[Rfam]
RNA sequence: CAGCAGACUGGAGGCUGAAAUUCAGGGGCGGUAGCCUU
Numbered sequence: 001c002a003g004c005a006g007a008c009u010g011g012a013g014g015c016u017g018a019a020a021u022u023c024a025g026g027g028g029c030g031g032u033a034g035c036c037u038u
Stems, first nucleotide, its partner, number of pairs: 008025005
RNA: JUMPstart RNA